RAGATH-18 RNA: a 68-nucleotide RNA sequence from Finegoldia magna. The family's consensus secondary structure is taken from published work. Rfam's curators put it in the seed alignment.
RNA sequence: GAUGUGGAGUGUAAAAACCAUUGCUAGUAGUGGCUAAACCCACGAGAGCAUACACGAAGAAACAGCAA
Numbered sequence: 001g002a003u004g005u006g007g008a009g010u011g012u013a014a015a016a017a018c019c020a021u022u023g024c025u026a027g028u029a030g031u032g033g034c035u036a037a038a039c040c041c042a043c044g045a046g047a048g049c050a051u052a053c054a055c056g057a058a059g060a061a062a063c064a065g066c067a068a
Stems, first nucleotide, its partner, number of pairs: 001066001003064003009055005022050003030043003033039001